The record is a 585-nucleotide part of an RNA from Dolosigranulum pigrum, which matches "Bacterial small subunit ribosomal RNA" in Rfam. A reference for the family is Yusupov et al. (2001), "Crystal structure of the ribosome at 5.5 A resolution", Science. Its Rfam clan is "SSU clan". The organism belongs to Dolosigranulum pigrum, within Bacteria.

RNA sequence: UGACGGGGACCCGCACAAGCGGUGGAGCAUGUGGUUUAAUUCGAAGCAACGCGAAGAACCUUACCAGCUCUUGACAUCUUCUGACAACUCUAGAGAUAGAGCGUUCCCUUCGGGGACAGAAUGACAGGUGGUGCAUGGUUGUCGUCAGCUCGUGUCGUGAGAUGUUGGGUUAAGUCCCGUAACGAGCGCAACCCUUGUUGUUAGUUGCCAGCAUUAAGUUGGGCACUUUAACGAGACUGCCGGUGAUAAACCGGAGGAAGGCGGGGAUGACGUCAAAUCAUCAUGCCCCUUAUGAGCUGGGCUACACACGUGCUACAAUGGAUGGUACAACGAGCAGCGAUCCCGCAAGGGCUAGCUAAUCUUUCAAAGCCAUUCUCAGUUCGGAUUGCACUCUGCAACUCGAGUGCAUGAAGUCGGAAUCGCUAGUAAUCGCGAAUCAGAAUGUCGCGGUGAAUCCGUUCCCGGGUCUUGUACACACCGCCCGUCACACCACGAGAGUUUGAAACACCCGAAGUCGGCCGGCCAACCCUAUGGGAGGCAGCCGUCGAAGGUGGGUUGAAUGAUUGGGGUGAAGUCGUAACAAGG
Number, nucleotide and partner (000 for none) at each position: 001u475002g474003a472004c471005g470006g000007g469008g468009a467010c466011c465012c464013g463014c000015a459016c458017a000018a000019g423020c422021g421022g420023u419024g316025g000026a314027g313028c312029a311030u310031g309032u308033g307034g305035u304036u000037u000038a000039a000040u055041u054042c053043g052044a000045a000046g000047c000048a000049a000050c000051g000052c043053g042054a041055a040056g000057a000058a000059c000060c000061u000062u000063a000064c300065c299066a298067g297068c296069u295070c294071u000072u000073g000074a000075c000076a000077u124078c123079u121080u120081c119082u118083g117084a000085c000086a000087a000088c101089u100090c099091u098092a097093g000094a000095g000096a000097u092098a091099g090100a089101g088102c000103g000104u000105u116106c115107c114108c113109u000110u000111c000112g000113g108114g107115g106116a105117c083118a082119g081120a080121a079122u000123g078124a077125c000126a000127g289128g288129u000130g287131g286132u285133g284134c000135a000136u283137g282138g278139u277140u276141g274142u000143c272144g271145u000146c000147a000148g187149c186150u185151c184152g183153u182154g163155u162156c161157g000158u000159g000160a000161g156162a155163u154164g000165u000166u179167g178168g177169g176170u000171u000172a000173a000174g000175u000176c169177c168178c167179g166180u000181a000182a153183c152184g151185a150186g149187c148188g000189c000190a000191a000192c000193c266194c265195u264196u263197g000198u234199u233200g232201u231202u230203a229204g228205u000206u000207g000208c223209c222210a000211g000212c221213a220214u000215u000216a000217a000218g000219u000220u213221g212222g209223g208224c000225a000226c000227u000228u204229u203230a202231a201232c200233g199234a198235g000236a000237c257238u256239g000240c254241c253242g252243g251244u250245g000246a000247u000248a000249a000250a244251c243252c242253g241254g240255a000256g238257g237258a000259a000260g000261g000262c000263g196264g195265g194266g193267a000268u000269g000270a000271c144272g143273u000274c141275a000276a140277a139278u138279c000280a000281u000282c137283a136284u133285g132286c131287c130288c128289c127290u000291u000292a000293u000294g070295a069296g068297c067298u066299g065300g064301g000302c000303u000304a035305c034306a000307c033308a032309c031310g030311u029312g028313c027314u026315a000316c024317a000318a000319u000320g375321g374322a373323u372324g371325g370326u369327a000328c000329a000330a000331c000332g363333a362334g361335c000336a000337g356338c355339g000340a000341u000342c351343c350344c349345g000346c000347a000348a000349g344350g343351g342352c000353u000354a000355g338356c337357u000358a000359a000360u000361c334362u333363u332364u000365c000366a000367a000368a000369g326370c325371c324372a323373u322374u321375c320376u000377c000378a000379g000380u000381u000382c413383g000384g000385a000386u000387u408388g407389c406390a405391c404392u403393c402394u000395g000396c000397a000398a000399c000400u000401c000402g393403a392404g391405u390406g389407c388408a387409u000410g000411a000412a000413g382414u000415c000416g000417g000418a000419a023420u022421c021422g020423c019424u000425a000426g000427u000428a000429a451430u450431c449432g448433c447434g446435a445436a000437u000438c000439a000440g000441a000442a000443u000444g000445u435446c434447g433448c432449g431450g430451u429452g000453a000454a000455u000456c000457c000458g016459u015460u000461c000462c000463c013464g012465g011466g010467u009468c008469u007470u005471g004472u003473a000474c002475a001476c000477a000478c584479c000480g581481c000482c000483c577484g576485u000486c000487a000488c571489a570490c569491c568492a000493c566494g565495a564496g000497a000498g561499u560500u559501u558502g557503a556504a000505a000506c553507a552508c551509c550510c000511g000512a000513a000514g546515u000516c544517g543518g542519c541520c000521g000522g539523c538524c537525a000526a000527c535528c534529c000530u000531a000532u000533g000534g528535g527536a000537g524538g523539c522540a000541g519542c518543c517544g516545u000546c514547g000548a000549a000550g509551g508552u507553g506554g000555g000556u503557u502558g501559a500560a499561u498562g000563a000564u495565u494566g493567g000568g491569g490570u489571g488572a000573a000574g000575u000576c484577g483578u000579a000580a000581c480582a000583a000584g478585g000